This 56-nucleotide RNA belongs to the Rfam family "Glutamine riboswitch aptamer (glnA leader)". Its family is annotated with glutamine binding in the Gene Ontology. It is one of the family's seed sequences.
RNA sequence: UACUUUCAUCCUUAAGGAUGGAAGUAAGUAUUAAUAUAAUACUGAAGGAACGCAUU
Numbered sequence: 001u002a003c004u005u006u007c008a009u010c011c012u013u014a015a016g017g018a019u020g021g022a023a024g025u026a027a028g029u030a031u032u033a034a035u036a037u038a039a040u041a042c043u044g045a046a047g048g049a050a051c052g053c054a055u056u
Base pairs, nucleotide, nucleotide: 003052005050006049007048009018010017011016021053027043028042029041030040031039032038